The record is a 74-nucleotide RNA from Oryzias latipes, which matches "mir-148/mir-152 microRNA precursor family" in Rfam.
[Rfam]
Nucleotides: 074
Base pairs, nucleotide, nucleotide: 004070005069007067008066009065010064011063012062013061014060015059016058022052023051024050025049028048029047030046031045
Number, partner (000 for none) and nucleotide at each position: 001000u002000c003000u004070g005069g006000u007067c008066a009065a010064a011063g012062u013061u014060c015059u016058g017000u018000g019000a020000u021000a022052c023051a024050c025049u026000c027000a028048g029047a030046c031045u032000g033000u034000g035000a036000a037000u038000g039000u040000u041000u042000g043000c044000u045031g046030g047029u048028c049025a050024g051023u052022g053000c054000a055000u056000a057000a058016c059015a060014g061013a062012a063011c064010u065009u066008u067007g068000u069005c070004c071000c072000g073000g074000c
Lineage of the source: Eukaryota > Chordata > Osteoglossocephalai > Eurypterygia > Oryzias. Rfam's curators put it in the seed alignment. Gene Ontology terms of the family: miRNA-mediated post-transcriptional gene silencing and RISC complex. The literature on the family includes a 2005 paper in Genes Dev by Chen et al., "The developmental miRNA profiles of zebrafish as determined by small RNA cloning".